[Rfam]
RNA: chrB-b RNA
RNA sequence: UGGGGAUUUUGCAGCCUCCCCCGUUUCAAGACGCCUAGCGUCCAAGGACUGC
Number, nucleotide and partner (000 for none) at each position: 001u000002g021003g020004g019005g018006a017007u000008u000009u000010u000011g052012c051013a050014g049015c000016c000017u006018c005019c004020c003021c002022c000023g000024u000025u000026u000027c000028a000029a000030g042031a041032c040033g039034c038035c000036u000037a000038g034039c033040g032041u031042c030043c000044a000045a000046g000047g000048a000049c014050u013051g012052c011